A member of the RNA family "Bacillaceae-1 RNA" from Bacillus sp. J14TS2, 67 nucleotides long. The source organism's lineage runs through Bacteria, Bacillati, Bacillota, Bacillaceae and Bacillus. Rfam classes the family as a small RNA.
RNA sequence: UUUUGCGGAAUAUCGUUUAAAAAGCUCGACGUCCUGUCGAAACACCGAUGGACUCGCAUCCUGCCGU
Numbered sequence: 001u002u003u004u005g006c007g008g009a010a011u012a013u014c015g016u017u018u019a020a021a022a023a024g025c026u027c028g029a030c031g032u033c034c035u036g037u038c039g040a041a042a043c044a045c046c047g048a049u050g051g052a053c054u055c056g057c058a059u060c061c062u063g064c065c066g067u
Stems, first nucleotide, its partner, number of pairs: 011050005017044001026040005054066001056064002